[Rfam]
RNA sequence: AAUAAGUGGAGACCAGCUACCAUUAAAAAAACGGGGCGAUACCGAAAAGCCAUACGAGUAGGAAAAUU
Numbered sequence: 001a002a003u004a005a006g007u008g009g010a011g012a013c014c015a016g017c018u019a020c021c022a023u024u025a026a027a028a029a030a031a032c033g034g035g036g037c038g039a040u041a042c043c044g045a046a047a048a049g050c051c052a053u054a055c056g057a058g059u060a061g062g063a064a065a066a067u068u
Base pairs, nucleotide, nucleotide: 006023007022008021009020035051036050037049042062043061
RNA: DUF805 RNA
Organism: Xiashengella succiniciproducens